[Rfam]
RNA: Fluoride riboswitch aptamer (crcB RNA motif)
Organism: Priestia megaterium
RNA sequence: AAUAUAAAUGGCGAUGGAGUUCGCCAAAAUUGUCGUUGUGCUAAUGACUCCUACCCUUUU
Numbered sequence: 001a002a003u004a005u006a007a008a009u010g011g012c013g014a015u016g017g018a019g020u021u022c023g024c025c026a027a028a029a030u031u032g033u034c035g036u037u038g039u040g041c042u043a044a045u046g047a048c049u050c051c052u053a054c055c056c057u058u059u060u
Stems, first nucleotide, its partner, number of pairs: 010025004016051006032041002